About this RNA
The record is an 84-nucleotide RNA sequence from Homo sapiens, which matches "mir-489 microRNA precursor family" in Rfam. The base pairs follow the family's consensus structure, which was predicted with RNAalifold. Its family is annotated with miRNA-mediated post-transcriptional gene silencing and RISC complex in the Gene Ontology.
[Rfam]
RNA sequence: GUGGCAGCUUGGUGGUCGUAUGUGUGACGCCAUUUACUUGAACCUUUAGGAGUGACAUCACAUAUACGGCAGCUAAACUGCUAC
Numbered sequence: 001g002u003g004g005c006a007g008c009u010u011g012g013u014g015g016u017c018g019u020a021u022g023u024g025u026g027a028c029g030c031c032a033u034u035u036a037c038u039u040g041a042a043c044c045u046u047u048a049g050g051a052g053u054g055a056c057a058u059c060a061c062a063u064a065u066a067c068g069g070c071a072g073c074u075a076a077a078c079u080g081c082u083a084c
Stems, first nucleotide, its partner, number of pairs: 002083006015070008024061004029056001031054003037050002